[Rfam]
RNA sequence: UGGUAGAUGCACCCUGAUUGAACCUCUGGCUUCGCGCCAGAGGUUUUUUUU
Dot-bracket structure: .(((......))).........((((((((.....))))))))........